This 46-nucleotide RNA sequence from Pocillopora damicornis belongs to the Rfam family "Histone 3' UTR stem-loop". The family's consensus secondary structure is taken from published work. The source organism's lineage runs through Eukaryota, Opisthokonta, Metazoa, Cnidaria and Pocillopora. It is annotated as a cis-regulatory element. For this family Rfam cites "Structure of histone mRNA stem-loop, human stem-loop binding protein, and 3'hExo ternary complex" (Tan et al., Science, 2013).
[Rfam]
RNA sequence: CAAACGGCUCCUUUAGGAGCCACCAAAUGCAAAGAAAGUCAUGAUC
Dot-bracket structure: .....((((((....)))))).........................
Numbered sequence: 001c002a003a004a005c006g007g008c009u010c011c012u013u014u015a016g017g018a019g020c021c022a023c024c025a026a027a028u029g030c031a032a033a034g035a036a037a038g039u040c041a042u043g044a045u046c
Stems, first nucleotide, its partner, number of pairs: 006021006